[Rfam]
RNA sequence: GUACUUACCUGGCAGGCAAGACACUGUGAUCACGAAAGUGGUUUUCCCAGGGCGAGGCUUAUCCGCUGCACUCUGGACGUGCGACCCCUGCAGUUUCCCCAAAAGUGGGAAACUGGACUACAUAGUUUGUGGUAGUAGGGGACUGUGUUUAUGCUCUCUCCUG
Numbered sequence: 001g002u003a004c005u006u007a008c009c010u011g012g013c014a015g016g017c018a019a020g021a022c023a024c025u026g027u028g029a030u031c032a033c034g035a036a037a038g039u040g041g042u043u044u045u046c047c048c049a050g051g052g053c054g055a056g057g058c059u060u061a062u063c064c065g066c067u068g069c070a071c072u073c074u075g076g077a078c079g080u081g082c083g084a085c086c087c088c089u090g091c092a093g094u095u096u097c098c099c100c101a102a103a104a105g106u107g108g109g110a111a112a113c114u115g116g117a118c119u120a121c122a123u124a125g126u127u128u129g130u131g132g133u134a135g136u137a138g139g140g141g142a143c144u145g146u147g148u149u150u151a152u153g154c155u156c157u158c159u160c161c162u163g
Stems, first nucleotide, its partner, number of pairs: 012121001014119002016048001019045003023042005049089004054085001057082002060079001062077003091116001093114001094112003098108002137162006145154003
A member of the RNA family "U1 spliceosomal RNA" from Vicugna pacos, 163 nucleotides long. On this family, see Pomeranz Krummel et al., Nature 2009: "Crystal structure of human spliceosomal U1 snRNP at 5.5 A resolution". The family's RNA type in Rfam is spliceosomal small nuclear RNA. It scores 104 bits against the family's covariance model.